[Rfam]
Nucleotides: 091
Stems, first nucleotide, its partner, number of pairs: 001091004
Number, partner (000 for none) and nucleotide at each position: 001091u002090u003089u004088u005000g006000c007000a008000u009000g010000a011000u012000u013000a014000u015000a016000a017000a018000a019000g020000c021000a022000a023000u024000c025000a026000u027000u028000u029000u030000a031000g032000u033000c034000u035000g036000a037000g038000g039000u040000g041000u042000a043000c044000a045000u046000g047000c048000a049000g050000g051000a052000c053000u054000u055000u056000a057000u058000u059000g060000u061000u062000a063000u064000u065000u066000a067000g068000g069000a070000a071000u072000u073000c074000u075000u076000c077000g078000u079000u080000u081000a082000u083000g084000a085000c086000c087000u088004a089003g090002a091001a